The record is a 138-nucleotide sequence from Hymenochirus boettgeri, which matches "U8 small nucleolar RNA" in Rfam. The family has 55 seed sequences and 1,597 matches in Rfam 15.1. The family's consensus secondary structure is taken from published work.
RNA sequence: UAUUAAGUGGAGUUAAAAUCCUUAACUGUUCCUCUCCAGUUGGGAGAAACAGAACAUAUGACAUGGGAGAGGCUGAUUACUGAUUACUCAUACUCCAGUUCUGUCUGGGAUGACACAGCCAUAUGGAGCCAUUCUGAU
Dot-bracket structure: .........................(((.(..(((((.....))))).))))......................((.((.(....)....)).))....(((((.(((..........))).)))))...........